Shown here is a 109-nucleotide RNA sequence from Variovorax sp. OV329, a member of the family "Glycine riboswitch aptamer". Rfam links the family to the GO term glycine biosynthetic process. A reference for the family is Mandal et al. (2004), "A glycine-dependent riboswitch that uses cooperative binding to control gene expression", Science.
RNA sequence: UCAGUGCCGUCUGGAGAGCCAUCGCAAGCCAUUGCGAUGCACCGAAGGAGCAAGUCCGUUGCGGGUGCAGCGGAUGAAUCUCUCAGGUACCAAGGACAGGGGGAGCGGC
Numbered sequence: 001u002c003a004g005u006g007c008c009g010u011c012u013g014g015a016g017a018g019c020c021a022u023c024g025c026a027a028g029c030c031a032u033u034g035c036g037a038u039g040c041a042c043c044g045a046a047g048g049a050g051c052a053a054g055u056c057c058g059u060u061g062c063g064g065g066u067g068c069a070g071c072g073g074a075u076g077a078a079u080c081u082c083u084c085a086g087g088u089a090c091c092a093a094g095g096a097c098a099g100g101g102g103g104a105g106c107g108g109c
Stems, first nucleotide, its partner, number of pairs: 007103002010100004020039008041088003044084002048082003054075007